pemK RNA: an 81-nucleotide RNA sequence. By type it is a cis-regulatory element.
RNA sequence: ACAAUGAUACUUCCGUCCAGCCUUAGCCGCAAGCAAAGGGGGCGGCCGGCAGAGAUCCUGCCGGGGGUGAGAUUCCCAUGA
Numbered sequence: 001a002c003a004a005u006g007a008u009a010c011u012u013c014c015g016u017c018c019a020g021c022c023u024u025a026g027c028c029g030c031a032a033g034c035a036a037a038g039g040g041g042g043c044g045g046c047c048g049g050c051a052g053a054g055a056u057c058c059u060g061c062c063g064g065g066g067g068u069g070a071g072a073u074u075c076c077c078a079u080g081a
Stems, first nucleotide, its partner, number of pairs: 012078001013045006046064003050060003065077003